[Rfam]
RNA sequence: UAGGCAUGCUGAAGCUCCGCAGCGGCGCCUGGGUAUGAAACCCGACACCGUAACCUUUUCGGAGCUUGA
Numbered sequence: 001u002a003g004g005c006a007u008g009c010u011g012a013a014g015c016u017c018c019g020c021a022g023c024g025g026c027g028c029c030u031g032g033g034u035a036u037g038a039a040a041c042c043c044g045a046c047a048c049c050g051u052a053a054c055c056u057u058u059u060c061g062g063a064g065c066u067u068g069a
Base pairs, nucleotide, nucleotide: 012067013066014065015064016063017062018061019060023050024049025048030044031043032042033041034039

The record is a 69-nucleotide RNA from Paenirhizobium selenitireducens, which matches "ybhL leader" in Rfam. A search with the family's covariance model found it, with a score of 75 bits. Rfam describes the family as follows. This family is a putative regulatory RNA structure that is found upstream of an uncharacterized membrane protein in alpha-proteobacteria. For this family Rfam cites "Evidence for a second class of S-adenosylmethionine riboswitches and other regulatory RNA motifs in alpha-proteobacteria" (Corbino et al., Genome Biol, 2005). The base pairs follow the family's consensus structure. By type it is a cis-regulatory leader.